[Rfam]
RNA sequence: UAUGGCGAAGGUGAUGGGGUUCCACCUAAUUGAACCGCCGAAUUGUUGAGACGCUCAGCGUCAAACAACCCUCUCGGCUGAUGACUCCUACUAAAAU
Numbered sequence: 001u002a003u004g005g006c007g008a009a010g011g012u013g014a015u016g017g018g019g020u021u022c023c024a025c026c027u028a029a030u031u032g033a034a035c036c037g038c039c040g041a042a043u044u045g046u047u048g049a050g051a052c053g054c055u056c057a058g059c060g061u062c063a064a065a066c067a068a069c070c071c072u073c074u075c076g077g078c079u080g081a082u083g084a085c086u087c088c089u090a091c092u093a094a095a096a097u
Stems, first nucleotide, its partner, number of pairs: 010026004016088006037078004
About this RNA
A member of the RNA family "Fluoride riboswitch aptamer (crcB RNA motif)" from Vibrio ishigakensis, 97 nucleotides long. NCBI's taxonomy places the organism under Bacteria, Pseudomonadati, Gammaproteobacteria, Vibrionaceae, Vibrio.